[Rfam]
RNA sequence: UUUCGCAUCGGUGUAGCGAUGCGGGUCGUCGCCGAACUCGCCGAGGAUCCGGGCGCCGAGCACCGGCCCGAGGCCGGGCAGG
Numbered sequence: 001u002u003u004c005g006c007a008u009c010g011g012u013g014u015a016g017c018g019a020u021g022c023g024g025g026u027c028g029u030c031g032c033c034g035a036a037c038u039c040g041c042c043g044a045g046g047a048u049c050c051g052g053g054c055g056c057c058g059a060g061c062a063c064c065g066g067c068c069c070g071a072g073g074c075c076g077g078g079c080a081g082g
Stems, first nucleotide, its partner, number of pairs: 008044006018038001020036001022034003055079003060075001063072001